[Rfam]
Nucleotides: 033
Base pairs, nucleotide, nucleotide: 001023002022003021004020005019008016009015010014
Number, partner (000 for none) and nucleotide at each position: 001023c002022u003021c004020u005019g006000u007000u008016u009015c010014c011000u012000a013000a014010g015009g016008a017000u018000u019005c020004a021003g022002g023001g024000c025000a026000a027000a028000a029000a030000g031000g032000a033000g
Source information
This 33-nucleotide sequence belongs to the Rfam family "L31-Firmicutes ribosomal protein leader". The base pairs follow the family's consensus structure, which is taken from published work. It is one of the family's seed sequences. Rfam classes the family as a cis-regulatory leader.